[Rfam]
RNA sequence: CGGAGGGUGAACUCCCACUCGGCGUCGGCGCCGAGCAGUGCCGCGUCGCCGGCCGCGUCGCCGCCGGUGAGCAGCGCGGUCACCGUCUCGUCGCCGUACUUGCCGGUGCCGACCCGUUCGAUCCUGCCGUGGGCGAUCAGGAUCACCUGGUCGGUCGGCGUGCCGCGCUCGGCGAGGACGUCGCCGGGGACGACGUCCCGCUGGGCGAACCGCCCGGCCAGCUCCUGGAGGGUGGGGUCGUCGGUGAAGCCGCGCAGCGGCGCCAGCUCGCGCAACUCCUGGGGGAUGACCCGGACUUCGGUGCCCUCGGUGACGAACUCCACCCGGCCGUCGCCGAGGGUAUGGGUCAGGCGCCGGUUGACGCGGUAGGUACCGCCGGAGACCUGUGUCCAGGGCAGGACCCGCAGCAGCCACCGCGAGGAGAUGCCCUGCAUCUGCGGCGGGGUCUUGGUCGUGGUCGCCAGGUUGCGGGCGGCCGCGGUGUCGAGGCUGGACCGGUGCUGGUCGG
Dot-bracket structure: .....((((.(...(...(.((..(.((...(......(((((.(.((((((.(...((.(((.((((........(((..((.((......)).))..))).....))))......(.(.((..((.((.(.(.(...((..(.....(....(((((.(..(((.....)))..).....)))))...)...).))...).).)..)).))..)).).)..)..)).))...)(.((((((.(....(((.(.((..(((......)))....))).)))..).))))..)).).))))))..).)))))..)...)).).)).)..(((......)))..........((.(((...((.......)).))).))..)...).))))(((((((...(.(((.(.......))))..)...))))))).....((.(...(..((((((.......))))))...)...).))((.(((.(((.(......)))).)))...)).

About this RNA: Rfam assigns this 508-nucleotide RNA sequence from Streptomyces sp. SID8354 to the family "Saccharopolyspora sRNA 350". Rfam 15.1 lists 1,170 matches to the family in 705 species. It scores 97 bits against the family's covariance model. The family's RNA type in Rfam is antisense RNA. The family's consensus secondary structure was predicted with RNAfold.